[Rfam]
RNA sequence: CGAGCCGACCGGGCGGCCGCGGUACCUCCGGCCAGGCCGGGGGGCUGAGGAACGUCCGGGCUCCACAGAGCAGGGCGGUGGCUAACGGCCACCCGGGGUGACCCGCGGGACAGUGCCACAGAGAACAGACCGCCGUCGGCCUGCCGAUGGUAAGGGUGAAACGGUGGGGUAAGAGCCCACCAGCGCUGCAGGUGACUGCGGCGGCUAGGUAAACCCCGCCCGGAGCAAGACCGCACAGCAGACGUCCGAGGGCUGCUCGCCCGAGCCUGCGGGUAGGUCGCGUGAGGCCACCGGCAACGGUGGUCCAAGAUGGAUGGUCGCCGCCGCCAGGUCGUGAGGCCCGGCGGUAACAGAACCCGGCGUACAGGUCGGCUCGUCCG
Numbered sequence: 001c002g003a004g005c006c007g008a009c010c011g012g013g014c015g016g017c018c019g020c021g022g023u024a025c026c027u028c029c030g031g032c033c034a035g036g037c038c039g040g041g042g043g044g045c046u047g048a049g050g051a052a053c054g055u056c057c058g059g060g061c062u063c064c065a066c067a068g069a070g071c072a073g074g075g076c077g078g079u080g081g082c083u084a085a086c087g088g089c090c091a092c093c094c095g096g097g098g099u100g101a102c103c104c105g106c107g108g109g110a111c112a113g114u115g116c117c118a119c120a121g122a123g124a125a126c127a128g129a130c131c132g133c134c135g136u137c138g139g140c141c142u143g144c145c146g147a148u149g150g151u152a153a154g155g156g157u158g159a160a161a162c163g164g165u166g167g168g169g170u171a172a173g174a175g176c177c178c179a180c181c182a183g184c185g186c187u188g189c190a191g192g193u194g195a196c197u198g199c200g201g202c203g204g205c206u207a208g209g210u211a212a213a214c215c216c217c218g219c220c221c222g223g224a225g226c227a228a229g230a231c232c233g234c235a236c237a238g239c240a241g242a243c244g245u246c247c248g249a250g251g252g253c254u255g256c257u258c259g260c261c262c263g264a265g266c267c268u269g270c271g272g273g274u275a276g277g278u279c280g281c282g283u284g285a286g287g288c289c290a291c292c293g294g295c296a297a298c299g300g301u302g303g304u305c306c307a308a309g310a311u312g313g314a315u316g317g318u319c320g321c322c323g324c325c326g327c328c329a330g331g332u333c334g335u336g337a338g339g340c341c342c343g344g345c346g347g348u349a350a351c352a353g354a355a356c357c358c359g360g361c362g363u364a365c366a367g368g369u370c371g372g373c374u375c376g377u378c379c380g
Stems, first nucleotide, its partner, number of pairs: 001376010011365001012322007020047004025042004052363003056360005061225004068258004073221005078092005093107001094105004108216002113214002115210003130155002132151008163181006183205001184203008229279004238270004243265001250262004286305008
RNA: Bacterial RNase P class A